[Rfam]
Rfam assigns this 53-nucleotide RNA sequence from Olea europaea to the family "Plastid-atpF group II-D1 intron". Gene Ontology term of the family: Group II intron splicing. Plastid atpF is a non-coding RNA (ncRNA) recognised in plastids. It has been reported in the intron group II-D1 region of ATP synthase (atpF) genes. A reference for the family is Richter et al. (2023), "Retrograde signaling in plants: A critical review focusing on the GUN pathway and beyond", Plant Commun. The source organism's lineage runs through Eukaryota, Streptophytina, Magnoliopsida, Oleeae and Olea europaea. It scores 65 bits against the family's covariance model. The family's consensus secondary structure was predicted with LocARNA. Rfam 15.1 lists 1,372 matches to the family in 227 species.
RNA sequence: AUGUAUUUUAUCGAUAUAGAACACUUAUUUCGAUAAAAUGAUUUGAACCACUU
Numbered sequence: 001a002u003g004u005a006u007u008u009u010a011u012c013g014a015u016a017u018a019g020a021a022c023a024c025u026u027a028u029u030u031c032g033a034u035a036a037a038a039u040g041a042u043u044u045g046a047a048c049c050a051c052u053u
Stems, first nucleotide, its partner, number of pairs: 011033004016028002